[Rfam]
RNA: 7SK RNA
Organism: Urocynchramus pylzowi
RNA sequence: GGGCGAUCUGGCUGUGACAUCUGCCACCCCACUGCUCUCCAGGGCUGAUUCAGCUGAUCUGGCUGGCAAGGUGGGUGUCCCAACACUCCUUGUGUGUCCCUCCUGAAGCUGCACACUCAGUCACAGAGGACAGCACCGUUCAUCAGUCAAGGGUACACGGCAGCUGUGCUCCCCUGCCACAACCUCCAAACAAGCUCAAGGUCCAUUUGUAGGAGAACAUAAGGUAGUCAAGCUUCCAAGACUGCAGACACACCCAAAUGAGGUGUUGCAUGGGGCAGUCAUUUUGU
Numbered sequence: 001g002g003g004c005g006a007u008c009u010g011g012c013u014g015u016g017a018c019a020u021c022u023g024c025c026a027c028c029c030c031a032c033u034g035c036u037c038u039c040c041a042g043g044g045c046u047g048a049u050u051c052a053g054c055u056g057a058u059c060u061g062g063c064u065g066g067c068a069a070g071g072u073g074g075g076u077g078u079c080c081c082a083a084c085a086c087u088c089c090u091u092g093u094g095u096g097u098c099c100c101u102c103c104u105g106a107a108g109c110u111g112c113a114c115a116c117u118c119a120g121u122c123a124c125a126g127a128g129g130a131c132a133g134c135a136c137c138g139u140u141c142a143u144c145a146g147u148c149a150a151g152g153g154u155a156c157a158c159g160g161c162a163g164c165u166g167u168g169c170u171c172c173c174c175u176g177c178c179a180c181a182a183c184c185u186c187c188a189a190a191c192a193a194g195c196u197c198a199a200g201g202u203c204c205a206u207u208u209g210u211a212g213g214a215g216a217a218c219a220u221a222a223g224g225u226a227g228u229c230a231a232g233c234u235u236c237c238a239a240g241a242c243u244g245c246a247g248a249c250a251c252a253c254c255c256a257a258a259u260g261a262g263g264u265g266u267u268g269c270a271u272g273g274g275g276c277a278g279u280c281a282u283u284u285u286g287u
Base pairs, nucleotide, nucleotide: 001089002088003087010081016079017078018077019076020075021074022073023072024071025070027066028065029062030061031060034059036057037056039053098133099129100128101127102126103120104119105118106117108116163233164232165231169227170226172224173223175221176220184215185214186213187212190210191209192208193207194206260285261284262283263282264281265279266278267277268276269275